Rfam assigns this 87-nucleotide sequence from Triticum turgidum to the family "MIR1120/MIR1122 microRNA precursor family". The organism belongs to Triticum turgidum, within Eukaryota. On this family, see Yao et al., Genome Biol 2007: "Cloning and characterization of microRNAs from wheat (Triticum aestivum L.)".
[Rfam]
RNA sequence: GUACUCCCUUUGUCCCACAAUAUAAGAGCGUUUUGCAAGCUACGUUAGGUUGCAAAAUGCUCUUAUAUUGUGGGACGGAGGGAGUAC
Numbered sequence: 001g002u003a004c005u006c007c008c009u010u011u012g013u014c015c016c017a018c019a020a021u022a023u024a025a026g027a028g029c030g031u032u033u034u035g036c037a038a039g040c041u042a043c044g045u046u047a048g049g050u051u052g053c054a055a056a057a058u059g060c061u062c063u064u065a066u067a068u069u070g071u072g073g074g075a076c077g078g079a080g081g082g083a084g085u086a087c
Base pairs, nucleotide, nucleotide: 003085004084005083007081008080009079010078011077013075014074015073016072017071019069020068021067022066023065024064025063026062027061028060029059030058031057032056033055034054035053036052037051038050040048041047